The family of this 195-nucleotide RNA from Hordeum vulgare is "MIR1435 microRNA precursor family". The base pairs follow the family's consensus structure, which was predicted with RNAalifold. It scores 99 bits against the family's covariance model.
[Rfam]
RNA sequence: UAGCUUUGUCCUAAGUCAAACUUCUUUAAGUUUGAACAACUAUAUGGAAAGAAAUGCUAACAUUUACAAAAUCAUAUAUACAGUACAAAAAUAUAAUUCAUGGCUAAUCUAAUGAAAUUAUUUUGGUGUUGUAGAUGUCAAUAUAUUUUUCUAUAAACUUGUUCAGACUUAAAGGUUGACUUAGGACAAACUAGA
Numbered sequence: 001u002a003g004c005u006u007u008g009u010c011c012u013a014a015g016u017c018a019a020a021c022u023u024c025u026u027u028a029a030g031u032u033u034g035a036a037c038a039a040c041u042a043u044a045u046g047g048a049a050a051g052a053a054a055u056g057c058u059a060a061c062a063u064u065u066a067c068a069a070a071a072u073c074a075u076a077u078a079u080a081c082a083g084u085a086c087a088a089a090a091a092u093a094u095a096a097u098u099c100a101u102g103g104c105u106a107a108u109c110u111a112a113u114g115a116a117a118u119u120a121u122u123u124u125g126g127u128g129u130u131g132u133a134g135a136u137g138u139c140a141a142u143a144u145a146u147u148u149u150u151c152u153a154u155a156a157a158c159u160u161g162u163u164c165a166g167a168c169u170u171a172a173a174g175g176u177u178g179a180c181u182u183a184g185g186a187c188a189a190a191c192u193a194g195a
Stems, first nucleotide, its partner, number of pairs: 005190005011184009021174002031167005045153008055143002060138009072126003076122001